Small nucleolar RNA SNORA14: a 139-nucleotide RNA sequence from Ornithorhynchus anatinus. The family's RNA type in Rfam is H/ACA-box small nucleolar RNA. ACA14 is a member of the H/ACA class of snoRNA that guide the sites of modification of uridines to pseudouridines. It scores 48 bits against the family's covariance model. Its family is annotated with nucleolus and RNA processing in the Gene Ontology.
[Rfam]
RNA sequence: CCGCGGGCUUCGACCCUCUCGGUAGCGUCGCCGGGAGCUUCGGAGAUGCGAGCGAACGCGGCGGGAGACUGCGGGGCGAUCCGGGGCGCCGGGCCCAUCUCCUGGGGCCCGGCGUUCUUUCACUAAAACUGAAACGGCU
Numbered sequence: 001c002c003g004c005g006g007g008c009u010u011c012g013a014c015c016c017u018c019u020c021g022g023u024a025g026c027g028u029c030g031c032c033g034g035g036a037g038c039u040u041c042g043g044a045g046a047u048g049c050g051a052g053c054g055a056a057c058g059c060g061g062c063g064g065g066a067g068a069c070u071g072c073g074g075g076g077c078g079a080u081c082c083g084g085g086g087c088g089c090c091g092g093g094c095c096c097a098u099c100u101c102c103u104g105g106g107g108c109c110c111g112g113c114g115u116u117c118u119u120u121c122a123c124u125a126a127a128a129c130u131g132a133a134a135c136g137g138c139u
Stems, first nucleotide, its partner, number of pairs: 003059003008052003017046004022041001024039003063139002070133001072131003085116007093108002099104001
Dot-bracket structure: ..(((..(((......((((.(.(((..........))).).))))...)))....)))...((.....(.(((..........(((((((.((....(....)..)).)))))))............))).)....))